[Rfam]
RNA sequence: CGACUGUAAUGGUCAGUUUGGAUUCGGAGGCACUCGAUUUUCUCGCACGCAUCUGCUCCAUCCCAUCAGAACACCCCCGCGGCGCCCAGCGCGAAUCUUGCGGUGGCCGCCCACUCGCACGGGUAACCUGCGACUGCUGCGCGCGGCCCUAAGCAAUGAAGAUGACACUUGAGGGAGGCUUCACUCUGCAGAGGCAUCUUCACCGUCAGAUGGCGCGCUGGAUUACGAUGGCGGGGGUUUGGGGCUGGGCGGCGAGGAGGGGAGGUCGACUCCAUUU
Numbered sequence: 001c002g003a004c005u006g007u008a009a010u011g012g013u014c015a016g017u018u019u020g021g022a023u024u025c026g027g028a029g030g031c032a033c034u035c036g037a038u039u040u041u042c043u044c045g046c047a048c049g050c051a052u053c054u055g056c057u058c059c060a061u062c063c064c065a066u067c068a069g070a071a072c073a074c075c076c077c078c079g080c081g082g083c084g085c086c087c088a089g090c091g092c093g094a095a096u097c098u099u100g101c102g103g104u105g106g107c108c109g110c111c112c113a114c115u116c117g118c119a120c121g122g123g124u125a126a127c128c129u130g131c132g133a134c135u136g137c138u139g140c141g142c143g144c145g146g147c148c149c150u151a152a153g154c155a156a157u158g159a160a161g162a163u164g165a166c167a168c169u170u171g172a173g174g175g176a177g178g179c180u181u182c183a184c185u186c187u188g189c190a191g192a193g194g195c196a197u198c199u200u201c202a203c204c205g206u207c208a209g210a211u212g213g214c215g216c217g218c219u220g221g222a223u224u225a226c227g228a229u230g231g232c233g234g235g236g237g238u239u240u241g242g243g244g245c246u247g248g249g250c251g252g253c254g255a256g257g258a259g260g261g262g263a264g265g266u267c268g269a270c271u272c273c274a275u276u277u
Stems, first nucleotide, its partner, number of pairs: 002014003019274004024269002031264001033262003039259004044254002048251003052248002055245006075237001076234002080230002083227002086221008095211004100206004105148001107146004112141001114139001115133005121128002149153001157202007168193003175186003

The family of this 277-nucleotide RNA from Chaetomium sp. MPI-SDFR-AT-0129 is "Fungal signal recognition particle RNA".
The organism belongs to Chaetomium, within Eukaryota.
The family has 50 seed sequences and 748 matches in Rfam 15.1.
The family's consensus secondary structure is taken from published work.
Rfam links the family to the GO terms signal recognition particle, endoplasmic reticulum targeting, SRP-dependent cotranslational protein targeting to membrane, signal sequence recognition and signal recognition particle, plasma membrane targeting.
By type it is a non-coding RNA gene.